U12 minor spliceosomal RNA: a 144-nucleotide sequence from Hymenochirus boettgeri. Its family is annotated with mRNA branch site recognition, pre-mRNA branch point binding and U12 snRNP in the Gene Ontology.
[Rfam]
RNA sequence: AUGCCUUAAACUAAUGAGUAAGGAAAAUACUGAACCAGAGUGACGCCUGGUUCCUCAUACAUUUGUCGAGAAGAAUUUGAACGGGGUACAGGUCGCCCCUUGCGAUCACUACUUAGUGGACCGCUAGGUGCAGUGAUCUGCACG
Numbered sequence: 001a002u003g004c005c006u007u008a009a010a011c012u013a014a015u016g017a018g019u020a021a022g023g024a025a026a027a028u029a030c031u032g033a034a035c036c037a038g039a040g041u042g043a044c045g046c047c048u049g050g051u052u053c054c055u056c057a058u059a060c061a062u063u064u065g066u067c068g069a070g071a072a073g074a075a076u077u078u079g080a081a082c083g084g085g086g087u088a089c090a091g092g093u094c095g096c097c098c099c100u101u102g103c104g105a106u107c108a109c110u111a112c113u114u115a116g117u118g119g120a121c122c123g124c125u126a127g128g129u130g131c132a133g134u135g136a137u138c139u140g141c142a143c144g
Stems, first nucleotide, its partner, number of pairs: 004023005032053007054070003082144001084143001086141002090139007098128003102124003106120001107118003
The source organism's lineage runs through Eukaryota, Opisthokonta, Amphibia, Anura and Hymenochirus. The family is grouped with related families in Rfam's "U2 clan". It is annotated as a spliceosomal small nuclear RNA. The literature on the family includes a 1997 paper in Trends Biochem Sci by Tarn and Steitz, "Pre-mRNA splicing: the discovery of a new spliceosome doubles the challenge". Rfam 15.1 lists 2,106 matches to the family in 1,170 species. Pairs were carried over by alignment from the consensus structure.